[Rfam]
RNA sequence: GAUGAAAGAAUUCGGAGGAACUCUUGCUGUGAUAUGUUGCCGUAAAAGAUUCAUAUCACAGCAGUAGUUACCUGGUAUUCUUUCGCC
Numbered sequence: 001g002a003u004g005a006a007a008g009a010a011u012u013c014g015g016a017g018g019a020a021c022u023c024u025u026g027c028u029g030u031g032a033u034a035u036g037u038u039g040c041c042g043u044a045a046a047a048g049a050u051u052c053a054u055a056u057c058a059c060a061g062c063a064g065u066a067g068u069u070a071c072c073u074g075g076u077a078u079u080c081u082u083u084c085g086c087c
Stems, first nucleotide, its partner, number of pairs: 003085009016073003019069004024064003028060009